[Rfam]
RNA sequence: UAUUUGUCUGUUCUAAUACCAGAGAACUUUAUAUUGGUUCUAUGGCUUCGCUUUCAGACAAAAUUAAAUUCUUCAAAAUUAUCCUAGUGUAAUCUUUAUUAAAGAAGAUUGCACUGGCAAUUUGCAGAAACAAAC
Dot-bracket structure: ....((((((........(((.(((((........).)))).))).........))))))........((((.(((.......(((((((((((............)))))))))))....))).))))......

Overview
Shown here is a 135-nucleotide RNA sequence from Spodoptera exigua, a member of the family "Small nucleolar RNA psi28S-1192". From the family's description: psi28S-1192 is a member of the H/ACA class of snoRNA. This family is responsible for guiding the modification of uridine 1192 to pseudouridine in Drosophila 28S rRNA. The family has 15 seed sequences and 81 matches in Rfam 15.1. A search with the family's covariance model found it, with a score of 46 bits.